RNA sequence: GUUGCUUCACAACUGGAAGAAUGGCCUGUUGUUAACAGUUUGGUCAUCCUGUAGAGGGAAGCAUAGAUUAAUCGGAAACACUGGCCAGUAUUAAACAGCAUGACGCAUUACCAAACUGUAUCGUGUUAUCUGUCUUCUGGCACAUUU
Numbered sequence: 001g002u003u004g005c006u007u008c009a010c011a012a013c014u015g016g017a018a019g020a021a022u023g024g025c026c027u028g029u030u031g032u033u034a035a036c037a038g039u040u041u042g043g044u045c046a047u048c049c050u051g052u053a054g055a056g057g058g059a060a061g062c063a064u065a066g067a068u069u070a071a072u073c074g075g076a077a078a079c080a081c082u083g084g085c086c087a088g089u090a091u092u093a094a095a096c097a098g099c100a101u102g103a104c105g106c107a108u109u110a111c112c113a114a115a116c117u118g119u120a121u122c123g124u125g126u127u128a129u130c131u132g133u134c135u136u137c138u139g140g141c142a143c144a145u146u147u
Stems, first nucleotide, its partner, number of pairs: 003063006017050001019048001022046005084141005090135001097127003101123003105119001

Shown here is a 147-nucleotide sequence from Aegilops tauschii, a member of the family "small nucleolar RNA snoR137". It scores 56 bits against the family's covariance model. Rfam links the family to the GO terms RNA processing and nucleolus. NCBI's taxonomy places the organism under Eukaryota, Magnoliopsida, Poaceae, Pooideae, Aegilops tauschii. On this family, see Chen and Wu, Nucleic Acids Res 2009: "Mining small RNA sequencing data: a new approach to identify small nucleolar RNAs in Arabidopsis".